[Rfam]
RNA sequence: GUCCACAGCUACUGGCCUGCAGCUGAUCUUAAAGUGGCAGUUGUAGCAUUCCUCUGUGGGAUAGAAACUGUUACACAGUUUCAUGCCUCUUUCUUAGCCACAUAGAAAGAGGGAUGUGCGUGACAGACAGGA
Numbered sequence: 001g002u003c004c005a006c007a008g009c010u011a012c013u014g015g016c017c018u019g020c021a022g023c024u025g026a027u028c029u030u031a032a033a034g035u036g037g038c039a040g041u042u043g044u045a046g047c048a049u050u051c052c053u054c055u056g057u058g059g060g061a062u063a064g065a066a067a068c069u070g071u072u073a074c075a076c077a078g079u080u081u082c083a084u085g086c087c088u089c090u091u092u093c094u095u096a097g098c099c100a101c102a103u104a105g106a107a108a109g110a111g112g113g114a115u116g117u118g119c120g121u122g123a124c125a126g127a128c129a130g131g132a
Stems, first nucleotide, its partner, number of pairs: 003059004017046009073121002076118002086112009
About this RNA:
A member of the RNA family "Small nucleolar RNA SNORA41" from Microtus ochrogaster, 132 nucleotides long. On this family, see Huttenhofer et al., EMBO J 2001: "RNomics: an experimental approach that identifies 201 candidates for novel, small, non-messenger RNAs in mouse". Rfam classes the family as an H/ACA-box small nucleolar RNA. Rfam links the family to the GO terms nucleolus and RNA processing. Rfam's curators write: ACA41 is a member of the H/ACA class of snoRNA that guide the sites of modification of uridines to pseudouridines. The organism belongs to Microtus, within Eukaryota. The family has 31 seed sequences and 676 matches in Rfam 15.1.